[Rfam]
This 90-nucleotide sequence from Rhynchospora breviuscula belongs to the Rfam family "Small nucleolar RNA R44/J54/Z268 family". The family's consensus secondary structure was predicted with PFOLD. Rfam links the family to the GO terms RNA processing and nucleolus. Rfam classes the family as a C/D-box small nucleolar RNA. A search with the family's covariance model found it, with a score of 70 bits.
RNA sequence: AAGGCAAGUGAGGAGAAAAGUAGACAGGGACUCAGUACUUCCUUUGGGGGAAUGAUGAUCUAGUCAAAAUGGGAAUCUCUCUGAUGCUUU
Numbered sequence: 001a002a003g004g005c006a007a008g009u010g011a012g013g014a015g016a017a018a019a020g021u022a023g024a025c026a027g028g029g030a031c032u033c034a035g036u037a038c039u040u041c042c043u044u045u046g047g048g049g050g051a052a053u054g055a056u057g058a059u060c061u062a063g064u065c066a067a068a069a070u071g072g073g074a075a076u077c078u079c080u081c082u083g084a085u086g087c088u089u090u
Base pairs, nucleotide, nucleotide: 002089003088004087005086006085